[Rfam]
RNA: Group II catalytic intron D1-D4-1
RNA sequence: UAACCUGUAUAUGAAUACAGGCUGAACGUAGAGAAGUCAGCAGAAGCCAUAGUCCGGGAGGUGUUGCAACACCUCGCGGAAGGGC
Number, nucleotide and partner (000 for none) at each position: 001u000002a000003a000004c021005c020006u019007g018008u017009a016010u015011a000012u000013g000014a000015a010016u009017a008018c007019a006020g005021g004022c000023u000024g000025a000026a000027c000028g000029u000030a000031g000032a000033g000034a000035a000036g000037u044038c043039a000040g000041c000042a000043g038044a037045a000046g085047c084048c083049a000050u000051a000052g000053u000054c000055c078056g077057g000058g075059a074060g073061g072062u071063g000064u000065u000066g000067c000068a000069a000070c000071a062072c061073c060074u059075c058076g000077c056078g055079g000080a000081a000082g000083g048084g047085c046